[Rfam]
RNA: SAM riboswitch aptamer (S box leader)
Organism: Mucilaginibacter straminoryzae
RNA sequence: GAUUUAUAUAGAAGCGGCGAGAGAACAGGCUCAACUGACCCGCUGGCAACCCUUACCGAGUAAGAAGGUGCCAAUUCCUGACCCGGAAAUAAUUAACCCGGGAAAUAUAAAUG
Numbered sequence: 001g002a003u004u005u006a007u008a009u010a011g012a013a014g015c016g017g018c019g020a021g022a023g024a025a026c027a028g029g030c031u032c033a034a035c036u037g038a039c040c041c042g043c044u045g046g047c048a049a050c051c052c053u054u055a056c057c058g059a060g061u062a063a064g065a066a067g068g069u070g071c072c073a074a075u076u077c078c079u080g081a082c083c084c085g086g087a088a089a090u091a092a093u094u095a096a097c098c099c100g101g102g103a104a105a106u107a108u109a110a111a112u113g
Stems, first nucleotide, its partner, number of pairs: 002112007013044005021032003026080004045072004050068002052064004076105001082102005